[Rfam]
RNA sequence: UCCCUCCCGAUCCCUUUCCCAUCAGAUCUGAAUACCGAUCUCGUGGUCGAAAAAGGAGGAAAAGCAAAUUUCAAACUGGUCUUGGCCUCUUUGCUGGCGCGGUCCUGCUCUGAGAGAG
Dot-bracket structure: ..(((((...........(((.(.((((........))))..))))........)))))................(.((.((..(((........)))..)).)).)...........
Numbered sequence: 001u002c003c004c005u006c007c008c009g010a011u012c013c014c015u016u017u018c019c020c021a022u023c024a025g026a027u028c029u030g031a032a033u034a035c036c037g038a039u040c041u042c043g044u045g046g047u048c049g050a051a052a053a054a055g056g057a058g059g060a061a062a063a064g065c066a067a068a069u070u071u072c073a074a075a076c077u078g079g080u081c082u083u084g085g086c087c088u089c090u091u092u093g094c095u096g097g098c099g100c101g102g103u104c105c106u107g108c109u110c111u112g113a114g115a116g117a118g
Stems, first nucleotide, its partner, number of pairs: 003059005019046003023043001025040004076107001078105002081102002085098003
Rfam assigns this 118-nucleotide sequence from Dromas ardeola to the family "Small nucleolar RNA SNORA61". The family has 25 seed sequences and 881 matches in Rfam 15.1. By type it is an H/ACA-box small nucleolar RNA. Rfam's curators write: ACA61 is a member of the H/ACA class of snoRNA that guide the sites of modification of uridines to pseudouridines. It scores 81 bits against the family's covariance model. The source organism's lineage runs through Eukaryota, Opisthokonta, Gnathostomata, Theropoda and Dromas.